[Rfam]
RNA sequence: UCUCCUCUACCGCUUAGUUCUCUUAAGAGAAACGGGGGAACCAAUUUCCGGGGUGAGUCAUUCUUGGCACUACACAGGCCGGGAAUGUAGGGUUAUCUUUCGACCCGAAUCCGUCAGCUAACUUCGUAAGCAUUGAAAGGGAGGAUGA
Numbered sequence: 001u002c003u004c005c006u007c008u009a010c011c012g013c014u015u016a017g018u019u020c021u022c023u024u025a026a027g028a029g030a031a032a033c034g035g036g037g038g039a040a041c042c043a044a045u046u047u048c049c050g051g052g053g054u055g056a057g058u059c060a061u062u063c064u065u066g067g068c069a070c071u072a073c074a075c076a077g078g079c080c081g082g083g084a085a086u087g088u089a090g091g092g093u094u095a096u097c098u099u100u101c102g103a104c105c106c107g108a109a110u111c112c113g114u115c116a117g118c119u120a121a122c123u124u125c126g127u128a129a130g131c132a133u134u135g136a137a138a139g140g141g142a143g144g145a146u147g148a
Stems, first nucleotide, its partner, number of pairs: 012131003018031003032127006042050001051112003059087010090106004
RNA: c-di-AMP riboswitch aptamer (ydaO/yuaA leader)
Organism: Desulfosporosinus fructosivorans